A member of the RNA family "Small nucleolar RNA SNORD26" from Propithecus coquereli, 72 nucleotides long. The family has 17 seed sequences and 451 matches in Rfam 15.1.
[Rfam]
RNA sequence: CUAUGGGGAUGAUUUUAAGAAUUGAACUCUUUCUGAUGGAUUAAUAGAGAAAACACAAAAAUUCUGAGUAGC
Number, nucleotide and partner (000 for none) at each position: 001c071002u070003a069004u068005g000006g000007g000008g000009a000010u000011g000012a000013u000014u000015u000016u000017a000018a000019g000020a000021a000022u000023u000024g000025a000026a000027c000028u000029c000030u000031u000032u000033c000034u000035g000036a000037u000038g000039g000040a000041u000042u000043a000044a000045u000046a000047g000048a000049g000050a000051a000052a000053a000054c000055a000056c000057a000058a000059a000060a000061a000062u000063u000064c000065u000066g000067a000068g004069u003070a002071g001072c000
Description: For this family Rfam cites "A small nucleolar RNA requirement for site-specific ribose methylation of rRNA in Xenopus" (Tycowski et al., Proc Natl Acad Sci U S A, 1996). The base pairs follow the family's consensus structure, which was predicted with PFOLD. Clan: SNORD26 clan.